[Rfam]
RNA sequence: AUCCAAGUGCACGGGUUUUACGUUACCGGUGAAGGUUCGCCUGAGGCAACGUUUUUGCUAGUUGAAAACUACCAUUAUGACCGCUCCAGUUGGUCUCUGUGAUCGGCUGGGAAUAUUUGGAAACCAGAAUUUGG
Numbered sequence: 001a002u003c004c005a006a007g008u009g010c011a012c013g014g015g016u017u018u019u020a021c022g023u024u025a026c027c028g029g030u031g032a033a034g035g036u037u038c039g040c041c042u043g044a045g046g047c048a049a050c051g052u053u054u055u056u057g058c059u060a061g062u063u064g065a066a067a068a069c070u071a072c073c074a075u076u077a078u079g080a081c082c083g084c085u086c087c088a089g090u091u092g093g094u095c096u097c098u099g100u101g102a103u104c105g106g107c108u109g110g111g112a113a114u115a116u117u118u119g120g121a122a123a124c125c126a127g128a129a130u131u132u133g134g
Stems, first nucleotide, its partner, number of pairs: 020052005026046002033042003085111011124134004
Shown here is a 134-nucleotide RNA from Ascosphaera apis, a member of the family "U4 spliceosomal RNA".
By type it is a spliceosomal small nuclear RNA.
Pairs were carried over by alignment from the consensus structure, which is taken from published work.
U4 small nuclear RNA (U4 snRNA) is a component of the major U2-dependent spliceosome.
It is one of the family's seed sequences.